[Rfam]
RNA: mir-156 microRNA precursor family
Organism: Phoenix dactylifera
RNA sequence: CUGACAGAAGAGAGUGAGCACAUAUGGUGUUUUCUUGCAUGGGGGGAGAGUCCAAGCUCGAAGCUAUUUGUGCUCACUUCUGUGUCUGUCAG
Dot-bracket structure: ((((((((..(((((((((((..((........................................))..))))))))).))...))))))))